The record is a 45-nucleotide RNA sequence, which matches "eL15-Euryarchaeota ribosomal protein leader" in Rfam. It is annotated as a cis-regulatory leader. Pairs were carried over by alignment from the consensus structure, which is taken from published work. A reference for the family is Eckert and Weinberg (2020), "Discovery of 20 novel ribosomal leader candidates in bacteria and archaea", BMC Microbiol.

RNA sequence: GCGGACAAGGUCCGCUAGGAUGUAACCGUAAGGUUGAACUAUAAA
Dot-bracket structure: (((((.....)))))..((....((((....))))...)).....